[Rfam]
RNA sequence: UGACCCUAACGGGUCACCUAGCCAACUGACGUUGUUAGUGGAAAAUAUCCACAGAAUAUAGCCAACAGGGUCCAUUUCCUGUUGGCUCUUUUUUU
Numbered sequence: 001u002g003a004c005c006c007u008a009a010c011g012g013g014u015c016a017c018c019u020a021g022c023c024a025a026c027u028g029a030c031g032u033u034g035u036u037a038g039u040g041g042a043a044a045a046u047a048u049c050c051a052c053a054g055a056a057u058a059u060a061g062c063c064a065a066c067a068g069g070g071u072c073c074a075u076u077u078c079c080u081g082u083u084g085g086c087u088c089u090u091u092u093u094u095u
Stems, first nucleotide, its partner, number of pairs: 001016006033058003038052005062085008
A member of the RNA family "Qrr RNA" from Vibrio sediminis, 95 nucleotides long. By type it is a small RNA. From the family's description: This family represents a set of small RNAs (the Qrr RNAs) that are thought to be involved in the regulation of quorum sensing in Vibrio species. It is believed that these RNAs, guided by a protein, Hfq, can mediate the destabilisation of the quorum-sensing master regulators LuxR/HapR mRNAs. It scores 81 bits against the family's covariance model. Lineage of the source: Bacteria > Pseudomonadota > Gammaproteobacteria > Vibrionaceae > Vibrio. Rfam links the family to the GO term quorum sensing.